RNA sequence: CCACAACUUUAAUGUGGAUGUGCUUGCUUUGGUCCUCAAUAGUAAGUGCUUCCAUGUUUUAGUGGUGG
Number, nucleotide and partner (000 for none) at each position: 001c068002c067003a066004c000005a000006a063007c062008u061009u000010u000011a058012a057013u056014g055015u054016g053017g052018a051019u000020g049021u048022g047023c046024u045025u044026g043027c042028u041029u000030u000031g000032g000033u000034c000035c000036u000037c000038a000039a000040u000041a028042g027043u026044a025045a024046g023047u022048g021049c020050u000051u018052c017053c016054a015055u014056g013057u012058u011059u000060u000061a008062g007063u006064g000065g000066u003067g002068g001